[Rfam]
RNA sequence: CGAGCAUUCGGAUUGUCGGUCUACCGAGCAAUUUCACGUGCUCGGUGGAGAAUCUUUCCUUUGUCGU
Numbered sequence: 001c002g003a004g005c006a007u008u009c010g011g012a013u014u015g016u017c018g019g020u021c022u023a024c025c026g027a028g029c030a031a032u033u034u035c036a037c038g039u040g041c042u043c044g045g046u047g048g049a050g051a052a053u054c055u056u057u058c059c060u061u062u063g064u065c066g067u
Base pairs, nucleotide, nucleotide: 004064005063006062010058011057012056015053016052020049021048022047023046024045025044026043027042028041029040

Overview: The record is a 67-nucleotide sequence from Bombyx mori, which matches "mir-2774 microRNA precursor family" in Rfam. Pairs were carried over by alignment from the consensus structure, which was predicted with RNAalifold. Gene Ontology terms of the family: RISC complex and miRNA-mediated post-transcriptional gene silencing. It scores 63 bits against the family's covariance model. The literature on the family includes a 2010 paper in BMC Genomics by Liu et al., "MicroRNAs of Bombyx mori identified by Solexa sequencing".